[Rfam]
RNA sequence: AAAGCAACCCUAACAAAAAUCAUUGACUAGUUUUGUCUUGCAGUAAGUGCUUUUUGUUGGGGUAGCUGAU
Numbered sequence: 001a002a003a004g005c006a007a008c009c010c011u012a013a014c015a016a017a018a019a020u021c022a023u024u025g026a027c028u029a030g031u032u033u034u035g036u037c038u039u040g041c042a043g044u045a046a047g048u049g050c051u052u053u054u055u056g057u058u059g060g061g062g063u064a065g066c067u068g069a070u
Stems, first nucleotide, its partner, number of pairs: 004066002007063005013057005018051001021049004026044003
Dot-bracket structure: ...((.(((((.((((((..((((.(((.............))).)))).).))))).))))).))....
RNA: miR-430 microRNA precursor family
Organism: Oncorhynchus kisutch